[Rfam]
RNA sequence: GGAAUCCCGCCUGAGAAGGCUUAGCCAGCCACUCAGUAUCUAGCCUUGGGACUGAAGCGGUAACGCCAGGUCUAAGCGUAGGCAAGAAAGGUAGUAGGCCGAAAGCGAAAGCUGAAGAUGUAGAGCCCCGAAAUCCCCAAAUGGGUUGGUCGAUGCCUUAGAACCAGCAGAAGACAACACUGAGUUUAGCGAUAAAAGGCAAGCUAAAUUCAGCGCCCCGGGGUCAAAGGUCU
Numbered sequence: 001g002g003a004a005u006c007c008c009g010c011c012u013g014a015g016a017a018g019g020c021u022u023a024g025c026c027a028g029c030c031a032c033u034c035a036g037u038a039u040c041u042a043g044c045c046u047u048g049g050g051a052c053u054g055a056a057g058c059g060g061u062a063a064c065g066c067c068a069g070g071u072c073u074a075a076g077c078g079u080a081g082g083c084a085a086g087a088a089a090g091g092u093a094g095u096a097g098g099c100c101g102a103a104a105g106c107g108a109a110a111g112c113u114g115a116a117g118a119u120g121u122a123g124a125g126c127c128c129c130g131a132a133a134u135c136c137c138c139a140a141a142u143g144g145g146u147u148g149g150u151c152g153a154u155g156c157c158u159u160a161g162a163a164c165c166a167g168c169a170g171a172a173g174a175c176a177a178c179a180c181u182g183a184g185u186u187u188a189g190c191g192a193u194a195a196a197a198g199g200c201a202a203g204c205u206a207a208a209u210u211c212a213g214c215g216c217c218c219c220g221g222g223g224u225c226a227a228a229g230g231u232c233u
Base pairs, nucleotide, nucleotide: 011036012035013034014033015032018030019029020028021027022202024200025199039087040086041085043083044082045081046080047078048077049073050072051071052070053069057066058065059064123225125224126223127222128221129220130219143218144217145216146215148214149175150174151173154169155168156167180213181212182211183210184209185208186207187206188205189204190203
Shown here is a 233-nucleotide sequence from Sporomusa ovata, a member of the family "Group II catalytic intron D1-D4-6".
Gene Ontology term of the family: Group II intron splicing.
A search with the family's covariance model found it, with a score of 141 bits.
About the family: Group II introns are found in rRNA, tRNA and mRNA of organelles in fungi, plants and protists, and also in mRNA in bacteria.
Lineage of the source: Bacteria > Bacillati > Bacillota > Selenomonadales > Sporomusa.
On this family, see Lehmann and Schmidt, Crit Rev Biochem Mol Biol 2003: "Group II introns: structure and catalytic versatility of large natural ribozymes".